[Rfam]
RNA sequence: CGUUCCGGUCGGGCCCGACGUCAAAGACAAAGAACCAGGUAAAGAACCAACCCCACCCAACCCUGCCGUCUCGUCACCCACACGGGUGAACUGGCCCAAAUGGACUGGCGAUCAAGGAAGUUGGUGCGGGAAGGUCGGCGGCGAUCAACAAACCCCCAUACCCAUGAGACGGCCCCCGCCGGGACUGCAAUCCCGAACGAGGGCCUGACCACCGAGGAAGAAAGCCGCUUCCUG
Numbered sequence: 001c002g003u004u005c006c007g008g009u010c011g012g013g014c015c016c017g018a019c020g021u022c023a024a025a026g027a028c029a030a031a032g033a034a035c036c037a038g039g040u041a042a043a044g045a046a047c048c049a050a051c052c053c054c055a056c057c058c059a060a061c062c063c064u065g066c067c068g069u070c071u072c073g074u075c076a077c078c079c080a081c082a083c084g085g086g087u088g089a090a091c092u093g094g095c096c097c098a099a100a101u102g103g104a105c106u107g108g109c110g111a112u113c114a115a116g117g118a119a120g121u122u123g124g125u126g127c128g129g130g131a132a133g134g135u136c137g138g139c140g141g142c143g144a145u146c147a148a149c150a151a152a153c154c155c156c157c158a159u160a161c162c163c164a165u166g167a168g169a170c171g172g173c174c175c176c177c178g179c180c181g182g183g184a185c186u187g188c189a190a191u192c193c194c195g196a197a198c199g200a201g202g203g204c205c206u207g208a209c210c211a212c213c214g215a216g217g218a219a220g221a222a223a224g225c226c227g228c229u230u231c232c233u234g
Stems, first nucleotide, its partner, number of pairs: 007213003011210001017070004074089006105138004171205005177199002181194004216232005
RNA: Streptomyces sRNA 4677